[Rfam]
RNA sequence: UUGCAGUGAUGACCAACUGAGGACACCUUUGGAUUAACCAUGAAAUAAACCAUGUUCUGAGCAAC
Numbered sequence: 001u002u003g004c005a006g007u008g009a010u011g012a013c014c015a016a017c018u019g020a021g022g023a024c025a026c027c028u029u030u031g032g033a034u035u036a037a038c039c040a041u042g043a044a045a046u047a048a049a050c051c052a053u054g055u056u057c058u059g060a061g062c063a064a065c
Base pairs, nucleotide, nucleotide: 001064002063003062004061